[Rfam]
RNA sequence: UAAGCUGAAUGCAUUGUGAUUUCCAAUAAUUGAGACAGUGAUUUGUAAAAAGCUGUCUACAUUAAUGAAAAGAACAAUGUAAUCGGCUUG
Dot-bracket structure: (((((((..((((((((..(((.((.((((..(((((((............)))))))..)))).)).)))..))))))))..)))))))
Numbered sequence: 001u002a003a004g005c006u007g008a009a010u011g012c013a014u015u016g017u018g019a020u021u022u023c024c025a026a027u028a029a030u031u032g033a034g035a036c037a038g039u040g041a042u043u044u045g046u047a048a049a050a051a052g053c054u055g056u057c058u059a060c061a062u063u064a065a066u067g068a069a070a071a072g073a074a075c076a077a078u079g080u081a082a083u084c085g086g087c088u089u090g
Stems, first nucleotide, its partner, number of pairs: 001090007010081008020071003024067002027064004033058007